[Rfam]
Notes
Rfam assigns this 150-nucleotide RNA from Caenorhabditis briggsae to the family "Nematode sRNA ceN72-3_ceN74-2". The family has 13 seed sequences and 521 matches in Rfam 15.1. A search with the family's covariance model found it, with a score of 63 bits.

RNA sequence: CGCUUCGGUCCGGAGUUGAUGGGUUAUCGUACUUUUCACUACAUCCGGUUUCCUUGUCAAACCAAUACCGUUCUCUCGGGAACAAAACCUUUUCUCGUGUUCUGUUGAAGAACACAAGACCCUUCCCAUCAACACCAACUUUACUGAAGU
Numbered sequence: 001c002g003c004u005u006c007g008g009u010c011c012g013g014a015g016u017u018g019a020u021g022g023g024u025u026a027u028c029g030u031a032c033u034u035u036u037c038a039c040u041a042c043a044u045c046c047g048g049u050u051u052c053c054u055u056g057u058c059a060a061a062c063c064a065a066u067a068c069c070g071u072u073c074u075c076u077c078g079g080g081a082a083c084a085a086a087a088c089c090u091u092u093u094c095u096c097g098u099g100u101u102c103u104g105u106u107g108a109a110g111a112a113c114a115c116a117a118g119a120c121c122c123u124u125c126c127c128a129u130c131a132a133c134a135c136c137a138a139c140u141u142u143a144c145u146g147a148a149g150u
Stems, first nucleotide, its partner, number of pairs: 002150003006146004012136002015133009071081003097115006
About this RNA:
Pairs were carried over by alignment from the consensus structure, which was predicted with WAR. It is annotated as a small RNA. Taxonomically the source falls in Caenorhabditis (Eukaryota, Opisthokonta, Ecdysozoa, Peloderinae). On this family, see Jia et al., BMC Mol Biol 2007: "Systematic identification of non-coding RNA 2,2,7-trimethylguanosine cap structures in Caenorhabditis elegans".